[Rfam]
RNA sequence: UGACGGGGACCCGCACAAGCGGUGGAGCAUGUGGUUUAAUUCGACGCAACGCGAGGAACCUUACCAGAUCUUGACAUCCCACGUAUGCCUGCGAGAGCGGGCAGUGCCUUCGGGAACGUGGAGACAGGUGGUGCAUGGCUGUCGACAGCUCGUGUCGUGAGAUGUUGGGUUAAGUCCCGCAACGAGCGCAACCCCUAUCGCCAGUUGCCAUCAUUAAGUUGGGGACUCUGGCGAGACUGCCUGCGAAGAGCAGGAGGAAGGUGGGGAUGACGUCAAGUCAUCAUGCCCCUUAUGAUCUGGGCUACACACGUGCUACAAUGGCCGGUACAGAGAGCUGCGAAGCGGCAACGCCCAGCGAAUCUUCAAAGCCGGUCCAAGUUCGGAUUGAAGUCUGCAACUCGACUUCAUGAAGCUGGAAUCGCUAGUAAUCGCAGAUCAGCAAUGCUGCGGUGAAUACGUUCUCGGGUCUUGUACACACCGCCCGUCACACCACGAGAGUUGUCUGCACCUGAAGCUGCCGGUCUAACCGCAAGGAGGAAGGCAUCUAAGGUGUGGACAGUGAUUGGGGUGAAGUCGUAACAAGG
Number, nucleotide and partner (000 for none) at each position: 001u475002g474003a472004c471005g470006g000007g469008g468009a467010c466011c465012c464013g463014c000015a459016c458017a000018a000019g422020c421021g420022g419023u418024g316025g000026a314027g313028c312029a311030u310031g309032u308033g307034g305035u304036u000037u000038a000039a000040u055041u054042c053043g052044a000045c000046g000047c000048a000049a000050c000051g000052c043053g042054a041055g040056g000057a000058a000059c000060c000061u000062u000063a000064c300065c299066a298067g297068a296069u295070c294071u000072u000073g000074a000075c000076a000077u124078c123079c121080c120081a119082c118083g117084u000085a000086u103087g102088c101089c100090u099091g098092c097093g000094a000095g000096a000097g092098c091099g090100g089101g088102c087103a086104g000105u116106g000107c114108c113109u000110u000111c000112g000113g108114g107115a000116a105117c083118g082119u081120g080121g079122a000123g078124a077125c000126a000127g289128g288129u000130g287131g286132u285133g284134c000135a000136u283137g282138g278139c277140u276141g274142u000143c272144g271145a000146c000147a000148g187149c186150u185151c184152g183153u182154g163155u162156c161157g000158u000159g000160a000161g156162a155163u154164g000165u000166u179167g178168g177169g176170u000171u000172a000173a000174g000175u000176c169177c168178c167179g166180c000181a000182a153183c152184g151185a150186g149187c148188g000189c000190a000191a000192c000193c266194c265195c264196u263197a000198u234199c233200g232201c231202c230203a229204g228205u000206u000207g000208c223209c222210a000211u000212c221213a220214u000215u000216a000217a000218g000219u000220u213221g212222g209223g208224g000225a000226c000227u000228c204229u203230g202231g201232c200233g199234a198235g000236a000237c257238u256239g000240c254241c253242u252243g251244c250245g000246a000247a000248g000249a000250g244251c243252a242253g241254g240255a000256g238257g237258a000259a000260g000261g000262u000263g196264g195265g194266g193267a000268u000269g000270a000271c144272g143273u000274c141275a000276a140277g139278u138279c000280a000281u000282c137283a136284u133285g132286c131287c130288c128289c127290u000291u000292a000293u000294g070295a069296u068297c067298u066299g065300g064301g000302c000303u000304a035305c034306a000307c033308a032309c031310g030311u029312g028313c027314u026315a000316c024317a000318a000319u000320g374321g373322c372323c371324g370325g369326u368327a000328c000329a000330g000331a000332g363333a362334g361335c000336u000337g356338c355339g000340a000341a000342g351343c350344g349345g000346c000347a000348a000349c344350g343351c342352c000353c000354a000355g338356c337357g000358a000359a000360u000361c334362u333363u332364c000365a000366a000367a000368g326369c325370c324371g323372g322373u321374c320375c000376a000377a000378g000379u000380u000381c412382g000383g000384a000385u000386u407387g406388a405389a404390g403391u402392c401393u000394g000395c000396a000397a000398c000399u000400c000401g392402a391403c390404u389405u388406c387407a386408u000409g000410a000411a000412g381413c000414u000415g000416g000417a000418a023419u022420c021421g020422c019423u000424a000425g000426u000427a000428a451429u450430c449431g448432c447433a446434g445435a000436u000437c000438a000439g000440c000441a000442a000443u000444g000445c434446u433447g432448c431449g430450g429451u428452g000453a000454a000455u000456a000457c000458g016459u015460u000461c000462u000463c013464g012465g011466g010467u009468c008469u007470u005471g004472u003473a000474c002475a001476c000477a000478c583479c000480g580481c000482c000483c576484g575485u000486c000487a000488c570489a569490c568491c567492a000493c565494g564495a563496g000497a000498g560499u559500u558501g557502u556503c555504u554505g553506c552507a551508c550509c549510u000511g000512a000513a000514g545515c000516u543517g542518c541519c540520g000521g000522u538523c537524u536525a000526a000527c534528c533529g000530c000531a000532a000533g528534g527535a000536g524537g523538a522539a000540g519541g518542c517543a516544u000545c514546u000547a000548a000549g509550g508551u507552g506553u505554g504555g503556a502557c501558a500559g499560u498561g000562a000563u495564u494565g493566g000567g491568g490569u489570g488571a000572a000573g000574u000575c484576g483577u000578a000579a000580c480581a000582a000583g478584g000
RNA: Bacterial small subunit ribosomal RNA, nucleotides 892 to 1475